[Rfam]
RNA sequence: AGAGGGUGCCUUUCAGGCAUCCUCUCCUAAAACUUUCAAGGCCGGUCCUCAGGGACCGGCCCUUUUUUUGUCUGAA
Numbered sequence: 001a002g003a004g005g006g007u008g009c010c011u012u013u014c015a016g017g018c019a020u021c022c023u024c025u026c027c028u029a030a031a032a033c034u035u036u037c038a039a040g041g042c043c044g045g046u047c048c049u050c051a052g053g054g055a056c057c058g059g060c061c062c063u064u065u066u067u068u069u070g071u072c073u074g075a076a
Stems, first nucleotide, its partner, number of pairs: 008018004040061009
RNA: Makes More Granules Regulator RNA (mmgR)